[Rfam]
RNA sequence: UAACAUUGUCUUCCUGCCGUUUGACCGAGACUAGGCAGGGUUACCAAUCCGUCUCUCAUAUCCCCGCUAAGGGUGCGGGGAGCAUAGUAUCUCCA
Dot-bracket structure: .............(((((........[[[[[..)))))............]]]]].....(((((((.......)))))))..............
Numbered sequence: 001u002a003a004c005a006u007u008g009u010c011u012u013c014c015u016g017c018c019g020u021u022u023g024a025c026c027g028a029g030a031c032u033a034g035g036c037a038g039g040g041u042u043a044c045c046a047a048u049c050c051g052u053c054u055c056u057c058a059u060a061u062c063c064c065c066g067c068u069a070a071g072g073g074u075g076c077g078g079g080g081a082g083c084a085u086a087g088u089a090u091c092u093c094c095a
Stems, first nucleotide, its partner, number of pairs: 014038005027055005061081007

This 95-nucleotide RNA belongs to the Rfam family "PhotoRC-II RNA". By type it is a cis-regulatory element. Pairs were carried over by alignment from the consensus structure, which is taken from published work.